The record is a 183-nucleotide sequence from Sutcliffiella cohnii, which matches "Lysine riboswitch aptamer" in Rfam.
Its family is annotated with lysine biosynthetic process in the Gene Ontology.
Pairs were carried over by alignment from the consensus structure, which is taken from published work.
Riboswitches are metabolite binding domains within certain messenger RNAs that serve as precision sensors for their corresponding targets.
The organism belongs to Sutcliffiella, within Bacteria.
[Rfam]
RNA sequence: AGUGAAGAUAGAGGUGCGAACUCUAAUAGUAUGUAAUGGGAGAAGAUAGAGCUUCUGAGAACAUUACAGAAAGGGGAGGAUCGCCGAAGCGAAAAAGAACUCUACUGUCUUUUUUGCUGGUUCUACAUUUAAUAAAUGUAGGAUUGUCAGAUGGAUAUUACUAUCUGGAGAGCUAUCUCACGC
Numbered sequence: 001a002g003u004g005a006a007g008a009u010a011g012a013g014g015u016g017c018g019a020a021c022u023c024u025a026a027u028a029g030u031a032u033g034u035a036a037u038g039g040g041a042g043a044a045g046a047u048a049g050a051g052c053u054u055c056u057g058a059g060a061a062c063a064u065u066a067c068a069g070a071a072a073g074g075g076g077a078g079g080a081u082c083g084c085c086g087a088a089g090c091g092a093a094a095a096a097g098a099a100c101u102c103u104a105c106u107g108u109c110u111u112u113u114u115u116g117c118u119g120g121u122u123c124u125a126c127a128u129u130u131a132a133u134a135a136a137u138g139u140a141g142g143a144u145u146g147u148c149a150g151a152u153g154g155a156u157a158u159u160a161c162u163a164u165c166u167g168g169a170g171a172g173c174u175a176u177c178u179c180a181c182g183c
Stems, first nucleotide, its partner, number of pairs: 006178006016084004021079001022077003032068007088118011119145011147168007